[Rfam]
RNA sequence: GAAGCGGGCCGGGCCCCUCUGGCGAUAGGAAUUUCCCCCCUUGUUCCUGUCGCGAUGUCGGACCGCAUCG
Numbered sequence: 001g002a003a004g005c006g007g008g009c010c011g012g013g014c015c016c017c018u019c020u021g022g023c024g025a026u027a028g029g030a031a032u033u034u035c036c037c038c039c040c041u042u043g044u045u046c047c048u049g050u051c052g053c054g055a056u057g058u059c060g061g062a063c064c065g066c067a068u069c070g
Stems, first nucleotide, its partner, number of pairs: 006064002009061004022053011

Shown here is a 70-nucleotide sequence from Sphingobium sp. CAP-1, a member of the family "terC RNA". The family has 129 seed sequences and 1,112 matches in Rfam 15.1. The match comes from Rfam's covariance-model search (62 bits). Lineage of the source: Bacteria > Pseudomonadati > Sphingomonadales > Sphingobiaceae > Sphingobium.